[Rfam]
RNA: Small nucleolar RNA SNORA26
Organism: Salmo trutta
RNA sequence: UUGCCCAUCUAGGACCUAAAAUGUCCUAUAUGACCAACACAGAGGGGUAGAGUAGUUCUCUCAUAAACCUGUAGUGAAGCCUCAAAUCCUCACUGUGGAUCCUGUCGGGAGAAACACGA
Number, nucleotide and partner (000 for none) at each position: 001u000002u049003g048004c047005c046006c045007a000008u043009c042010u041011a000012g000013g000014a000015c000016c000017u033018a000019a000020a000021a000022u000023g000024u000025c000026c000027u000028a000029u000030a000031u000032g000033a017034c000035c000036a000037a000038c000039a000040c000041a010042g009043a008044g000045g006046g005047g004048u003049a002050g000051a000052g000053u000054a000055g000056u113057u000058c111059u110060c109061u108062c107063a000064u000065a000066a000067a000068c000069c098070u097071g096072u095073a094074g093075u092076g000077a090078a000079g088080c000081c000082u086083c000084a000085a000086a082087u000088c079089c000090u077091c000092a075093c074094u073095g072096u071097g070098g069099a000100u000101c000102c000103u000104g000105u000106c000107g062108g061109g060110a059111g058112a000113a056114a000115c000116a000117c000118g000119a000